[Rfam]
RNA sequence: UGACACAGGCAAUGGCACUGGAAGAAUUCACGGGUUUUGUAACUACCCCCGUGGUCUCUUAGUGGCAUCUCUGGUGUCGG
Numbered sequence: 001u002g003a004c005a006c007a008g009g010c011a012a013u014g015g016c017a018c019u020g021g022a023a024g025a026a027u028u029c030a031c032g033g034g035u036u037u038u039g040u041a042a043c044u045a046c047c048c049c050c051g052u053g054g055u056c057u058c059u060u061a062g063u064g065g066c067a068u069c070u071c072u073g074g075u076g077u078c079g080g
Stems, first nucleotide, its partner, number of pairs: 004076003008072002012068003016064002019061003022057001024056002028054006
RNA: mir-263 microRNA precursor family